The family of this 78-nucleotide RNA sequence from Asticcacaulis sp. YBE204 is "Makes More Granules Regulator RNA (mmgR)". Gene Ontology terms of the family: protein binding, DNA-templated transcription, termination and response to nitrogen compound. About the family: SuhB later renamed mmgR (makes more granules regulator) was a putative non-coding RNA found multiple times in the Agrobacterium tumefaciens genome and related alpha-proteobacteria. The family has 87 seed sequences and 1,791 matches in Rfam 15.1. The organism belongs to Asticcacaulis, within Bacteria. A search with the family's covariance model found it, with a score of 66 bits. The literature on the family includes a 2005 paper in Genome Biol by Corbino et al., "Evidence for a second class of S-adenosylmethionine riboswitches and other regulatory RNA motifs in alpha-proteobacteria".
RNA sequence: AUCGAUUGCCCUUCCUGGGCGUUUCCUCCCUGUAGACUUUAGCCGCGCUCGUGUAGCGCGGCUUUUUUUUAGCCGAAA
Numbered sequence: 001a002u003c004g005a006u007u008g009c010c011c012u013u014c015c016u017g018g019g020c021g022u023u024u025c026c027u028c029c030c031u032g033u034a035g036a037c038u039u040u041a042g043c044c045g046c047g048c049u050c051g052u053g054u055a056g057c058g059c060g061g062c063u064u065u066u067u068u069u070u071a072g073c074c075g076a077a078a
Stems, first nucleotide, its partner, number of pairs: 008020004041063009